[Rfam]
RNA sequence: GUCGAGCUCGGUAACAUGGGCUUGUAAUCCAAGCGGAGACAAUAAGAUGAUGGGACGUUGGAUCGAUCUCAUUGGGCCGGGUUUGGUUGGGCUUAUUAUGGCUUGCCCAUUCCAAGUUGGGAGUUGAAGCAUGCGGCUUGUGCGUAGGCUUUGGUCACGUGUUUCUUAGAGUGGGGGAGACUGCGUGAGGCUGGUUUCACAGAGCAGCGUACACCUCCCGCUCUUGACGGUGGAAGGAUAACAGGCCUUCGCCUUCUGAGCCCACAAUGACCCAAUAAGCCGAUUCCGAUUGGACCAUCAUCUUU
Numbered sequence: 001g002u003c004g005a006g007c008u009c010g011g012u013a014a015c016a017u018g019g020g021c022u023u024g025u026a027a028u029c030c031a032a033g034c035g036g037a038g039a040c041a042a043u044a045a046g047a048u049g050a051u052g053g054g055a056c057g058u059u060g061g062a063u064c065g066a067u068c069u070c071a072u073u074g075g076g077c078c079g080g081g082u083u084u085g086g087u088u089g090g091g092c093u094u095a096u097u098a099u100g101g102c103u104u105g106c107c108c109a110u111u112c113c114a115a116g117u118u119g120g121g122a123g124u125u126g127a128a129g130c131a132u133g134c135g136g137c138u139u140g141u142g143c144g145u146a147g148g149c150u151u152u153g154g155u156c157a158c159g160u161g162u163u164u165c166u167u168a169g170a171g172u173g174g175g176g177g178a179g180a181c182u183g184c185g186u187g188a189g190g191c192u193g194g195u196u197u198c199a200c201a202g203a204g205c206a207g208c209g210u211a212c213a214c215c216u217c218c219c220g221c222u223c224u225u226g227a228c229g230g231u232g233g234a235a236g237g238a239u240a241a242c243a244g245g246c247c248u249u250c251g252c253c254u255u256c257u258g259a260g261c262c263c264a265c266a267a268u269g270a271c272c273c274a275a276u277a278a279g280c281c282g283a284u285u286c287c288g289a290u291u292g293g294a295c296c297a298u299c300a301u302c303u304u305u
Stems, first nucleotide, its partner, number of pairs: 001040003004023007028037003044304010056292002058289003061285005068279002071276003075272002078269001079263008089253002092251001098249001100247006107237002110235005116228009126165008135156004140151001142149002166171001173218005182211005191202003
The family of this 305-nucleotide RNA sequence from Brassica napus is "Plant signal recognition particle RNA". Its Rfam clan is "SRP clan". The base pairs follow the family's consensus structure, which is taken from published work. The match comes from Rfam's covariance-model search (245 bits).